[Rfam]
RNA: Small nucleolar RNA SNORA44
RNA sequence: CUGCAUGUUAAUCCAAGAGCUGUGGCUCCAUGCAGUAGCUGCAGGUCUCCAACAGCAUGCCAGAGCAAUGGGAAGGUCUUUGACUGCUGGGCCGCUUCUGCCUGUGACUGUCACUCACCCCUCCAAUACAU
Number, nucleotide and partner (000 for none) at each position: 001c000002u000003g000004c000005a000006u000007g000008u000009u000010a000011a000012u000013c044014c000015a000016a000017g000018a040019g039020c038021u037022g036023u035024g000025g000026c000027u000028c000029c000030a000031u000032g000033c000034a000035g023036u022037a021038g020039c019040u018041g000042c000043a000044g013045g000046u000047c000048u000049c000050c000051a000052a000053c000054a000055g000056c000057a000058u000059g000060c000061c000062a000063g000064a000065g000066c000067a000068a000069u000070g000071g124072g123073a122074a000075g120076g119077u000078c000079u000080u000081u000082g000083a000084c000085u000086g111087c110088u000089g103090g102091g101092c000093c000094g000095c000096u000097u000098c000099u000100g000101c091102c090103u089104g000105u000106g000107a000108c000109u000110g087111u086112c000113a000114c000115u000116c000117a000118c000119c076120c075121c000122u073123c072124c071125a000126a000127u000128a000129c000130a000131u000